[Rfam]
RNA sequence: CGAACAGACCGCCUUAUCGUCGUUUCGUUUUUUCGAAAGGGAGGAAAGUCCGGACACCAUAGGGAAGCGUAGCGGGUAACGCCCGUCGGUCAUAUUUUAGGAUGUGAUUAGGACAAGUGCAACAGAAAGUAUGUACAGGUAAUGCUGUAGUGAAACCAGGUAAACUCUAUGCGGUGAAAUAUCAAGUAUAUCAGCAUUUAAGGAUUUCUCGUCCGUUGUUGAAGGGUAGAUAGCUUGAGUCUCGCAGUAAUGCGUGAUCUAGAUAAAUGAUAAGGGUUCGCUUUGGCGAAUACAGAAUCCGGCUUAUAGGUCUGUUUUUUUU
Numbered sequence: 001c002g003a004a005c006a007g008a009c010c011g012c013c014u015u016a017u018c019g020u021c022g023u024u025u026c027g028u029u030u031u032u033u034c035g036a037a038a039g040g041g042a043g044g045a046a047a048g049u050c051c052g053g054a055c056a057c058c059a060u061a062g063g064g065a066a067g068c069g070u071a072g073c074g075g076g077u078a079a080c081g082c083c084c085g086u087c088g089g090u091c092a093u094a095u096u097u098u099a100g101g102a103u104g105u106g107a108u109u110a111g112g113a114c115a116a117g118u119g120c121a122a123c124a125g126a127a128a129g130u131a132u133g134u135a136c137a138g139g140u141a142a143u144g145c146u147g148u149a150g151u152g153a154a155a156c157c158a159g160g161u162a163a164a165c166u167c168u169a170u171g172c173g174g175u176g177a178a179a180u181a182u183c184a185a186g187u188a189u190a191u192c193a194g195c196a197u198u199u200a201a202g203g204a205u206u207u208c209u210c211g212u213c214c215g216u217u218g219u220u221g222a223a224g225g226g227u228a229g230a231u232a233g234c235u236u237g238a239g240u241c242u243c244g245c246a247g248u249a250a251u252g253c254g255u256g257a258u259c260u261a262g263a264u265a266a267a268u269g270a271u272a273a274g275g276g277u278u279c280g281c282u283u284u285g286g287c288g289a290a291u292a293c294a295g296a297a298u299c300c301g302g303c304u305u306a307u308a309g310g311u312c313u314g315u316u317u318u319u320u321u322u
Stems, first nucleotide, its partner, number of pairs: 002317009011307001012275007020041002023038005046305003050302005055176004062210004067172005072086005087111001088109009112167002117165002119161002134149005180232004191222005202214004239258003243254004
The family of this 322-nucleotide RNA from Flavobacterium muglaense is "Bacterial RNase P class A". The match comes from Rfam's covariance-model search (197 bits).